[Rfam]
RNA sequence: UUCAGCCGUCAAUUCCGUAGUGCAUUGCAGUGUUUGUUGUAACAGACUGCAAGCAUUGCGGAACUGACGGCUAGAUC
Numbered sequence: 001u002u003c004a005g006c007c008g009u010c011a012a013u014u015c016c017g018u019a020g021u022g023c024a025u026u027g028c029a030g031u032g033u034u035u036g037u038u039g040u041a042a043c044a045g046a047c048u049g050c051a052a053g054c055a056u057u058g059c060g061g062a063a064c065u066g067a068c069g070g071c072u073a074g075a076u077c
Base pairs, nucleotide, nucleotide: 006070007069009067010066011065014062015061016060017059018058021055022054023053025052026051027050028049029048
RNA: mir-932 microRNA precursor family
Organism: Dendroctonus ponderosae